Description:
A member of the RNA family "Small nucleolar RNA SNORA69" from Cicer arietinum, 128 nucleotides long. Rfam 15.1 lists 808 matches to the family in 584 species. NCBI's taxonomy places the organism under Eukaryota, Streptophytina, fabids, Cicereae, Cicer. U69 is a member of the H/ACA class of small nucleolar RNAs (snoRNAs) which act as guides in the the modification of uridines to pseudouridines. By type it is an H/ACA-box small nucleolar RNA.
RNA sequence: UGGGUGGGCAAUUUACAGCGCUUUUUGUGAGAAAGCGCUGUAAUAUGCCCACUCGUAUAUGAGUUAUGGGUGUGCAUUUUAGAGCGCUUUUUUGAGAAAGCGCUGUAAAAUGCACACCCGUAACUCAU
Numbered sequence: 001u002g003g004g005u006g007g008g009c010a011a012u013u014u015a016c017a018g019c020g021c022u023u024u025u026u027g028u029g030a031g032a033a034a035g036c037g038c039u040g041u042a043a044u045a046u047g048c049c050c051a052c053u054c055g056u057a058u059a060u061g062a063g064u065u066a067u068g069g070g071u072g073u074g075c076a077u078u079u080u081a082g083a084g085c086g087c088u089u090u091u092u093u094g095a096g097a098a099a100g101c102g103c104u105g106u107a108a109a110a111u112g113c114a115c116a117c118c119c120g121u122a123a124c125u126c127a128u
Base pairs, nucleotide, nucleotide: 001051002050003049004048016040017039018038019037020036021035022034023033024032065122066121067120068119069118070117071116072115073114074113075112081106083104084103085102086101087100088099089098090097091096